[Rfam]
RNA: Small nucleolar RNA SNORD123
RNA sequence: GGUGAAGAUGAUGACUCCUGGGGGGCUGAUUCAUGUGACUUGAAAAAGGCCAUCCAUUUCCUGAUUCACC
Numbered sequence: 001g002g003u004g005a006a007g008a009u010g011a012u013g014a015c016u017c018c019u020g021g022g023g024g025g026c027u028g029a030u031u032c033a034u035g036u037g038a039c040u041u042g043a044a045a046a047a048g049g050c051c052a053u054c055c056a057u058u059u060c061c062u063g064a065u066u067c068a069c070c
Stems, first nucleotide, its partner, number of pairs: 001070006